Description:
The record is a 202-nucleotide RNA from Malus domestica, which matches "U2 spliceosomal RNA" in Rfam. By type it is a spliceosomal small nuclear RNA.

[Rfam]
RNA sequence: UUACCUUUUCGGCCUUUUGGCUAAGAUCAAGUGUAGUAUUUGUUUUUAUCAGUUUAAUAGUUUAAUAUUUGAUACGUGAAUCAAUGGUUUACAUGAUAUUAAAUUAAUUAUUUUAAGGAAGAGUGCAUUACAAUAGCUUGCUAUUAGGGCUCUUGAGUGUCGCCCAAGCAUUGCACUACAGCAUGGGCAUGGUGCAACCUAC
Numbered sequence: 001u002u003a004c005c006u007u008u009u010c011g012g013c014c015u016u017u018u019g020g021c022u023a024a025g026a027u028c029a030a031g032u033g034u035a036g037u038a039u040u041u042g043u044u045u046u047u048a049u050c051a052g053u054u055u056a057a058u059a060g061u062u063u064a065a066u067a068u069u070u071g072a073u074a075c076g077u078g079a080a081u082c083a084a085u086g087g088u089u090u091a092c093a094u095g096a097u098a099u100u101a102a103a104u105u106a107a108u109u110a111u112u113u114u115a116a117g118g119a120a121g122a123g124u125g126c127a128u129u130a131c132a133a134u135a136g137c138u139u140g141c142u143a144u145u146a147g148g149g150c151u152c153u154u155g156a157g158u159g160u161c162g163c164c165c166a167a168g169c170a171u172u173g174c175a176c177u178a179c180a181g182c183a184u185g186g187g188c189a190u191g192g193u194g195c196a197a198c199c200u201a202c
Stems, first nucleotide, its partner, number of pairs: 007026003011022004047074006076092007121154003125150002128147001133144004157195006164186003168182002
NCBI's taxonomy places the organism under Eukaryota, Streptophyta, Tracheophyta, rosids, Malus.
From the family's description: U2 is a small nuclear RNA (snRNA) component of the spliceosome (involved in pre-mRNA splicing). Complementary binding between U2 snRNA (in an area lying towards the 5' end but 3' to hairpin I) and the branchpoint sequence (BPS) of the intron results the bulging out of an unpaired adenosine, on the BPS, which initiates a nucleophilic attack at the intronic 5' splice site, thus starting the first of two transesterification reactions that mediate splicing.
The family is grouped with related families in Rfam's "U2 clan".
Its family is annotated with pre-mRNA branch point binding, mRNA branch site recognition and U2 snRNP in the Gene Ontology.